[Rfam]
RNA sequence: AUUUCCAUUCCCCGAGGGAUCUGAUUUUACA
Number, nucleotide and partner (000 for none) at each position: 001a000002u000003u000004u000005c000006c000007a000008u000009u019010c018011c017012c016013c000014g000015a000016g012017g011018g010019a009020u000021c000022u000023g000024a000025u000026u000027u000028u000029a000030c000031a000
Description
A member of the RNA family "CRISPR RNA direct repeat element" from Methanocaldococcus jannaschii, 31 nucleotides long. It is one of the family's seed sequences. The organism belongs to Methanocaldococcus jannaschii, within Archaea.